[Rfam]
RNA sequence: UGCCCAGCAACUCCCAAUCCCUACCUCCUCGCGGGUACUGGCCGGGGGUACGAGUAACCUUUGGCGAAGAUCGGGUAACCAACCCCCGGUGGGAACUUUGGUCGUAUGCUGACAGGAAAGG
Numbered sequence: 001u002g003c004c005c006a007g008c009a010a011c012u013c014c015c016a017a018u019c020c021c022u023a024c025c026u027c028c029u030c031g032c033g034g035g036u037a038c039u040g041g042c043c044g045g046g047g048g049u050a051c052g053a054g055u056a057a058c059c060u061u062u063g064g065c066g067a068a069g070a071u072c073g074g075g076u077a078a079c080c081a082a083c084c085c086c087c088g089g090u091g092g093g094a095a096c097u098u099u100g101g102u103c104g105u106a107u108g109c110u111g112a113c114a115g116g117a118a119a120g121g
Base pairs, nucleotide, nucleotide: 014121015120018117019116020115023036024035025034048107049106050105051104052103053102055100056099
Rfam assigns this 121-nucleotide RNA from Aedes aegypti to the family "drz-agam-1 ribozyme". The source organism's lineage runs through Eukaryota, Insecta, Culicomorpha, Aedes and Stegomyia. For this family Rfam cites "Widespread occurrence of self-cleaving ribozymes" (Webb et al., Science, 2009). The family has 7 seed sequences and 10,507 matches in Rfam 15.1.